SAH (S-adenosyl-L-homocysteine) riboswitch aptamer: an 89-nucleotide RNA sequence from Inhella crocodyli. A search with the family's covariance model found it, with a score of 61 bits.
[Rfam]
RNA sequence: CGUUUCGAGGAGCGCUGCAACCGUCUGUAACGACGGCCAGGCUCGAAGCGAAGGCCCUCCCGGGCCAAUGGCAACCGCGCUCACCCGCU
Numbered sequence: 001c002g003u004u005u006c007g008a009g010g011a012g013c014g015c016u017g018c019a020a021c022c023g024u025c026u027g028u029a030a031c032g033a034c035g036g037c038c039a040g041g042c043u044c045g046a047a048g049c050g051a052a053g054g055c056c057c058u059c060c061c062g063g064g065c066c067a068a069u070g071g072c073a074a075c076c077g078c079g080c081u082c083a084c085c086c087g088c089u
Base pairs, nucleotide, nucleotide: 002049003048004047005046006045007044008043021036022035023034024033025032

The literature on the family includes a 2008 paper in Mol Cell by Wang et al., "Riboswitches that sense S-adenosylhomocysteine and activate genes involved in coenzyme recycling". NCBI's taxonomy places the organism under Bacteria, Pseudomonadati, Betaproteobacteria, Sphaerotilaceae, Inhella.